Editing element of GABA-3 exon 9: a 54-nucleotide sequence from Cavia porcellus.
RNA sequence: AAGGUGUCAUAUGCAACAGCCAUGGAUUGGUUCAUUGCUGUAUGCUUUGCUUUC
Numbered sequence: 001a002a003g004g005u006g007u008c009a010u011a012u013g014c015a016a017c018a019g020c021c022a023u024g025g026a027u028u029g030g031u032u033c034a035u036u037g038c039u040g041u042a043u044g045c046u047u048u049g050c051u052u053u054c
Stems, first nucleotide, its partner, number of pairs: 002053002006051001008049001011046001013045002016041005022035005